Source information:
A member of the RNA family "U4 spliceosomal RNA" from Coptotermes formosanus, 139 nucleotides long. It scores 51 bits against the family's covariance model. Rfam 15.1 lists 32,178 matches to the family in 2,547 species. The source organism's lineage runs through Eukaryota, Opisthokonta, Panarthropoda, Arthropoda and Coptotermes.
Nucleotides: 139
Base pairs, nucleotide, nucleotide: 021053022052023051024050025049027048028047035043036042086115088113089111090110091109092108093107094106095105097103098102128139129138130137131136
Number, partner (000 for none) and nucleotide at each position: 001000c002000u003000g004000u005000u006000u007000g008000u009000g010000a011000a012000c013000a014000g015000c016000a017000g018000c019000a020000u021053a022052u023051c024050g025049u026000a027048a028047c029000c030000a031000u032000u033000g034000a035043u036042g037000c038000a039000u040000a041000c042036c043035a044000g045000a046000u047028g048027u049025a050024c051023g052022a053021u054000u055000g056000c057000u058000g059000c060000u061000a062000g063000u064000u065000g066000g067000a068000a069000a070000c071000a072000a073000a074000c075000a076000g077000c078000a079000g080000u081000a082000u083000c084000u085000u086115g087000a088113u089111g090110a091109g092108u093107u094106g095105a096000c097103a098102u099000g100000a101000u102098a103097u104000a105095u106094u107093g108092a109091c110090u111089u112000c113088g114000g115086c116000a117000a118000u119000u120000g121000u122000u123000g124000a125000a126000a127000g128139c129138u130137c131136c132000u133000g134000c135000a136131g137130g138129a139128g